[Rfam]
ASpks TB sRNA: a 75-nucleotide RNA from Kitasatospora kifunensis.
The family's RNA type in Rfam is antisense RNA.
The literature on the family includes a 2009 paper in Mol Microbiol by Arnvig and Young, "Identification of small RNAs in Mycobacterium tuberculosis".

RNA sequence: CUUGAUCGAGCCCAGCCACAUCGGCCGGCCCUCGGGCCGGUUCUGCCCGUAGGCGGCAAGGACCGCCUGGGCCUC
Number, nucleotide and partner (000 for none) at each position: 001c000002u000003u000004g000005a000006u000007c000008g000009a000010g000011c000012c000013c000014a000015g025016c024017c023018a000019c000020a000021u000022c000023g017024g016025c015026c000027g000028g000029c000030c000031c071032u070033c069034g000035g000036g000037c000038c065039g064040g000041u000042u000043c060044u059045g000046c000047c056048c055049g054050u000051a000052g000053g000054c049055g048056g047057c000058a000059a044060g043061g000062a000063c000064c039065g038066c000067c000068u000069g033070g032071g031072c000073c000074u000075c000